[Rfam]
RNA sequence: UCGACUGUACUUUCACAGGAUAACUGCUACAGUGAUUCCUCUUGCAUACAUGUCAUAAAACAGAGCUUCACAGCAUCUCUGAUGAUGUCGAUCUCUGCACUGAUAAGGAAUUUGCUGGAGCUUGCUCCCAGCUUGAUGAAAGCUAUCAGUGUAGACUUCUGAAGAGAU
Numbered sequence: 001u002c003g004a005c006u007g008u009a010c011u012u013u014c015a016c017a018g019g020a021u022a023a024c025u026g027c028u029a030c031a032g033u034g035a036u037u038c039c040u041c042u043u044g045c046a047u048a049c050a051u052g053u054c055a056u057a058a059a060a061c062a063g064a065g066c067u068u069c070a071c072a073g074c075a076u077c078u079c080u081g082a083u084g085a086u087g088u089c090g091a092u093c094u095c096u097g098c099a100c101u102g103a104u105a106a107g108g109a110a111u112u113u114g115c116u117g118g119a120g121c122u123u124g125c126u127c128c129c130a131g132c133u134u135g136a137u138g139a140a141a142g143c144u145a146u147c148a149g150u151g152u153a154g155a156c157u158u159c160u161g162a163a164g165a166g167a168u
Stems, first nucleotide, its partner, number of pairs: 003039001006035001008034004017028002020025001046068001050067001053064002076167005094155005100149006107128003131143004